The family of this 91-nucleotide RNA sequence from Gouania willdenowi is "Small nucleolar RNA SNORD60". Rfam 15.1 lists 825 matches to the family in 373 species. Its family is annotated with nucleolus and RNA processing in the Gene Ontology.

[Rfam]
RNA sequence: AGCCUGUGAUGACAAACUAAACUAACUUUUCUGACACCUACUAUGAGAGCUGGACUCCAGCUCCUGAUUCUAGCUUUAAACUGAGAGGCUG
Numbered sequence: 001a002g003c004c005u006g007u008g009a010u011g012a013c014a015a016a017c018u019a020a021a022c023u024a025a026c027u028u029u030u031c032u033g034a035c036a037c038c039u040a041c042u043a044u045g046a047g048a049g050c051u052g053g054a055c056u057c058c059a060g061c062u063c064c065u066g067a068u069u070c071u072a073g074c075u076u077u078a079a080a081c082u083g084a085g086a087g088g089c090u091g
Stems, first nucleotide, its partner, number of pairs: 001090004049061005